[Rfam]
RNA sequence: UCCGAUAAAAGCAAACCUGAAGCGAUUCAGGGACGCAAAGCCACGGAUCCCAACGGGACCGCCGGGCCGCCGAAG
Numbered sequence: 001u002c003c004g005a006u007a008a009a010a011g012c013a014a015a016c017c018u019g020a021a022g023c024g025a026u027u028c029a030g031g032g033a034c035g036c037a038a039a040g041c042c043a044c045g046g047a048u049c050c051c052a053a054c055g056g057g058a059c060c061g062c063c064g065g066g067c068c069g070c071c072g073a074a075g
Stems, first nucleotide, its partner, number of pairs: 001075001003072002011036002016031006034061001040067003044064003048058002
c-di-GMP-I-GGC riboswitch aptamer: a 75-nucleotide RNA sequence from Syntrophotalea acetylenivorans. The base pairs follow the family's consensus structure, which is taken from published work. Taxonomically the source falls in Syntrophotalea (Bacteria, Pseudomonadati, Desulfuromonadia, Desulfuromonadales). Rfam links the family to the GO term cyclic-di-GMP binding. A search with the family's covariance model found it, with a score of 60 bits.